[Rfam]
Rfam assigns this 99-nucleotide RNA from Corynebacterium kroppenstedtii to the family "mraW RNA". The match comes from Rfam's covariance-model search (61 bits). It is annotated as a cis-regulatory element. Lineage of the source: Bacteria > Actinomycetota > Mycobacteriales > Corynebacteriaceae > Corynebacterium kroppenstedtii. The family's consensus secondary structure is taken from published work.
RNA sequence: GUAAGGAAUGUGUGCAGGCCUCUGCCCGUUUGGAUCCUGAUGUACUUCCCCAACACCAGGCACUGAGCGGGUAGGGCCCUGUUUACAUUCCUCUCCAUC
Numbered sequence: 001g002u003a004a005g006g007a008a009u010g011u012g013u014g015c016a017g018g019c020c021u022c023u024g025c026c027c028g029u030u031u032g033g034a035u036c037c038u039g040a041u042g043u044a045c046u047u048c049c050c051c052a053a054c055a056c057c058a059g060g061c062a063c064u065g066a067g068c069g070g071g072u073a074g075g076g077c078c079c080u081g082u083u084u085a086c087a088u089u090c091c092u093c094u095c096c097a098u099c
Stems, first nucleotide, its partner, number of pairs: 010086003014082005020076014036060004041055003